[Rfam]
A member of the RNA family "mir-9193 microRNA precursor family" from Myotis brandtii, 74 nucleotides long. Rfam 15.1 lists 6,008 matches to the family in 8 species. The source organism's lineage runs through Eukaryota, Gnathostomata, Euteleostomi, Laurasiatheria and Myotis. Gene Ontology terms of the family: miRNA-mediated post-transcriptional gene silencing and RISC complex.
RNA sequence: CACUAAUGGGGGGAGUCCCUCAGACAGGAUUGCAAGAGGGUGCAGGCAAGGCUGAGGGACUCCACUAGUGCACA
Dot-bracket structure: .....(..((.((((((((((((.(..(.(((((......))))).)..).)))))))))))).))..).....